[Rfam]
The record is a 90-nucleotide RNA from Actinacidiphila paucisporea, which matches "ZMP/ZTP riboswitch aptamer (pfl RNA motif)" in Rfam. The match comes from Rfam's covariance-model search (48 bits). NCBI's taxonomy places the organism under Bacteria, Actinomycetes, Kitasatosporales, Streptomycetaceae, Actinacidiphila.

RNA sequence: CGGGCGGGUCGUGACUGGCGCGCUGGGAUGGGGUCAACCAUCGGGGAGCGGCUCGGCGGGAGAUGAGAGCCGUGCGCCUGGGCCGUCCGU
Numbered sequence: 001c002g003g004g005c006g007g008g009u010c011g012u013g014a015c016u017g018g019c020g021c022g023c024u025g026g027g028a029u030g031g032g033g034u035c036a037a038c039c040a041u042c043g044g045g046g047a048g049c050g051g052c053u054c055g056g057c058g059g060g061a062g063a064u065g066a067g068a069g070c071c072g073u074g075c076g077c078c079u080g081g082g083c084c085g086u087c088c089g090u
Base pairs, nucleotide, nucleotide: 003057005055006054007053008052009051010050011049012048015045016044017078018077019076020075021074028041029040030039031038069083070082071081